Small nucleolar RNA SNORA5: a 136-nucleotide RNA from Amphiprion percula. About the family: ACA5 is a member of the H/ACA class of snoRNA that guide the sites of modification of uridines to pseudouridines. Clan: SNORA5 clan. A search with the family's covariance model found it, with a score of 78 bits. NCBI's taxonomy places the organism under Eukaryota, Metazoa, Chordata, Euteleosteomorpha, Amphiprion. It is annotated as an H/ACA-box small nucleolar RNA.

RNA sequence: UGCAGCUUUGUCAAAUUCGGUGCUUCUUCUUUAGUAUGCUGCACUGGCCAAAACAGCUGCAACAGUGACUUAGUAGUUCAUGGGCCCCACUUUCUUUAUCAUGGAUCCUGGGGUUAAAUAUGUACUGCAGACAAAA
Number, nucleotide and partner (000 for none) at each position: 001u000002g060003c059004a058005g057006c000007u000008u000009u000010g000011u000012c000013a000014a000015a000016u000017u000018c046019g045020g044021u043022g042023c041024u000025u000026c038027u000028u036029c000030u000031u000032u000033a000034g000035u000036a028037u000038g026039c000040u000041g023042c022043a021044c020045u019046g018047g000048c000049c000050a000051a000052a000053a000054c000055a000056g000057c005058u004059g003060c002061a000062a000063c000064a000065g000066u000067g000068a000069c000070u000071u000072a000073g128074u127075a126076g125077u124078u122079c000080a000081u000082g000083g000084g000085c113086c112087c111088c110089a109090c000091u000092u000093u000094c000095u000096u000097u000098a000099u000100c000101a000102u000103g000104g000105a000106u000107c000108c000109u089110g088111g087112g086113g085114u000115u000116a000117a000118a000119u000120a000121u000122g078123u000124a077125c076126u075127g074128c073129a000130g000131a000132c000133a000134a000135a000136a000